[Rfam]
RNA: mir-965 microRNA precursor family
Organism: Brassicogethes aeneus
RNA sequence: GACUGGGGGGUGAAAAGUCAUACUGCUUGUGUUUUAAUUGUAUCAUAAGCGUAUAGCUUUUCCCCUUUAGUU
Numbered sequence: 001g002a003c004u005g006g007g008g009g010g011u012g013a014a015a016a017g018u019c020a021u022a023c024u025g026c027u028u029g030u031g032u033u034u035u036a037a038u039u040g041u042a043u044c045a046u047a048a049g050c051g052u053a054u055a056g057c058u059u060u061u062c063c064c065c066u067u068u069a070g071u072u
Stems, first nucleotide, its partner, number of pairs: 003070005010064001012062001014060002018056001020054003026049006